[Rfam]
RNA sequence: UUCUUAUCCAGAAAGACUGAGGGAAUUGACCCUAUGACGUCUUGGCAACCUGUUCGUUUUGCGAAUAAGGUGCCACAUUCAACCACGCCAAUGGCGGGGAAAGAUAAGUU
Numbered sequence: 001u002u003c004u005u006a007u008c009c010a011g012a013a014a015g016a017c018u019g020a021g022g023g024a025a026u027u028g029a030c031c032c033u034a035u036g037a038c039g040u041c042u043u044g045g046c047a048a049c050c051u052g053u054u055c056g057u058u059u060u061g062c063g064a065a066u067a068a069g070g071u072g073c074c075a076c077a078u079u080c081a082a083c084c085a086c087g088c089c090a091a092u093g094g095c096g097g098g099g100a101a102a103g104a105u106a107a108g109u110u
Stems, first nucleotide, its partner, number of pairs: 003108006013043005021032003026082004044074004049070002052066004078102001083099002086096003
Shown here is a 110-nucleotide RNA sequence from Flavobacterium sp. Sd200, a member of the family "SAM riboswitch aptamer (S box leader)". The match comes from Rfam's covariance-model search (82 bits).